c-di-GMP-I riboswitch aptamer: a 93-nucleotide sequence from Paenibacillus sp. FSL R7-0331.
The organism belongs to Paenibacillus, within Bacteria.
Gene Ontology term of the family: cyclic-di-GMP binding.

[Rfam]
RNA sequence: ACCAAAUAUCGGCAAAGUUCUCCGAAAGGAAAUGACGCAAAGCCAUGGAUCUACAGUCUCAAAUCUUGGGGCCAGGAUAGCCAGGUUGCAGCC
Numbered sequence: 001a002c003c004a005a006a007u008a009u010c011g012g013c014a015a016a017g018u019u020c021u022c023c024g025a026a027a028g029g030a031a032a033u034g035a036c037g038c039a040a041a042g043c044c045a046u047g048g049a050u051c052u053a054c055a056g057u058c059u060c061a062a063a064u065c066u067u068g069g070g071g072c073c074a075g076g077a078u079a080g081c082c083a084g085g086u087u088g089c090a091g092c093c
Stems, first nucleotide, its partner, number of pairs: 012038002017033003021030003041087004046083003049078003056072006
Dot-bracket structure: ...........((...(((.(((....))))))...))..((((.((((((....((((((.....))))))...)))..)))))))......